Record summary
The record is an 84-nucleotide sequence from Calidris pygmaea, which matches "Small nucleolar RNA snR60/Z15/Z230/Z193/J17" in Rfam. Its family is annotated with nucleolus and RNA processing in the Gene Ontology. It scores 54 bits against the family's covariance model. Taxonomically the source falls in Calidris (Eukaryota, Craniata, Dipnotetrapodomorpha, Sauria).

[Rfam]
RNA sequence: AGGCUGUGUGUGAUGACUGCAUAGUUCAGCAGAUGACCCAUGGUGAUCAUGCUAUUUUUCUUUCGCUCCUAUCUGAUGCAGCCU
Numbered sequence: 001a002g003g004c005u006g007u008g009u010g011u012g013a014u015g016a017c018u019g020c021a022u023a024g025u026u027c028a029g030c031a032g033a034u035g036a037c038c039c040a041u042g043g044u045g046a047u048c049a050u051g052c053u054a055u056u057u058u059u060c061u062u063u064c065g066c067u068c069c070u071a072u073c074u075g076a077u078g079c080a081g082c083c084u
Stems, first nucleotide, its partner, number of pairs: 004081005